[Rfam]
RNA sequence: AAAGUUGGAUGGGGUGUUGAAACAUUACCAACAGGACGAGGGAAACAUCACCCUCUGACGAUACAGACAAUCAUCCAAUCGGUUCUGUAUCGUCACCGUAGUC
Numbered sequence: 001a002a003a004g005u006u007g008g009a010u011g012g013g014g015u016g017u018u019g020a021a022a023c024a025u026u027a028c029c030a031a032c033a034g035g036a037c038g039a040g041g042g043a044a045a046c047a048u049c050a051c052c053c054u055c056u057g058a059c060g061a062u063a064c065a066g067a068c069a070a071u072c073a074u075c076c077a078a079u080c081g082g083u084u085c086u087g088u089a090u091c092g093u094c095a096c097c098g099u100a101g102u103c
Stems, first nucleotide, its partner, number of pairs: 004032005012023001038055005057094010069084004
The record is a 103-nucleotide RNA, which matches "Methylobacterium-1 RNA" in Rfam.